Notes:
Shown here is a 129-nucleotide RNA from Thermoanaerobacteraceae bacterium SP2, a member of the family "FMN riboswitch aptamer (RFN element)". A search with the family's covariance model found it, with a score of 111 bits. Pairs were carried over by alignment from the consensus structure, which is taken from published work. A reference for the family is Vitreschak et al. (2002), "Regulation of riboflavin biosynthesis and transport genes in bacteria by transcriptional and translational attenuation", Nucleic Acids Res.
RNA sequence: UAAAACCUUCAGGGCAGGGUGAAAUUCCCGACCGGCGGUAAGCCAAAAGGCGAGCCCGCGAACUCCCUCGGGGAGCCGAUCCGGUAUAAGCCGGAGCCGACAGUAAAGUCUGGAUGAAAGAAGGUGUAU
Number, nucleotide and partner (000 for none) at each position: 001u000002a000003a127004a000005a125006c124007c123008u122009u121010c120011a000012g000013g000014g000015c000016a000017g029018g028019g027020u000021g000022a000023a000024a000025u000026u000027c019028c018029c017030g000031a109032c108033c099034g098035g059036c058037g057038g056039u000040a000041a000042g000043c000044c000045a000046a000047a000048a000049g000050g000051c000052g000053a000054g097055c096056c038057c037058g036059c035060g000061a000062a000063c075064u074065c000066c000067c000068u000069c000070g000071g000072g000073g000074a064075g063076c000077c000078g000079a000080u095081c094082c093083g092084g091085u000086a000087u000088a000089a000090g000091c084092c083093g082094g081095a080096g055097c054098c034099g033100a000101c112102a111103g110104u000105a000106a000107a000108g032109u031110c103111u102112g101113g000114a000115u000116g000117a000118a000119a000120g010121a009122a008123g007124g006125u005126g000127u003128a000129u000